The record is a 72-nucleotide RNA from Piliocolobus tephrosceles, which matches "Small nucleolar RNA ZL116" in Rfam.
RNA sequence: UGGGUGUGUGGUGUGACCUUAAUGAGCCUGCAUUCCCUCACCUGGAAAUGAUGAGCAGUCACUGAUGUCACA
Dot-bracket structure: ..(((((.....(((((.....((..(.(.((((.((......)).))))).)..)))))))..)))))...
Pairs were carried over by alignment from the consensus structure, which was predicted with RNAfold. The source organism's lineage runs through Eukaryota, Deuterostomia, Chordata, Teleostomi and Piliocolobus. The literature on the family includes a 2013 paper in Genome Biol by Kishore et al., "Insights into snoRNA biogenesis and processing from PAR-CLIP of snoRNA core proteins and small RNA sequencing".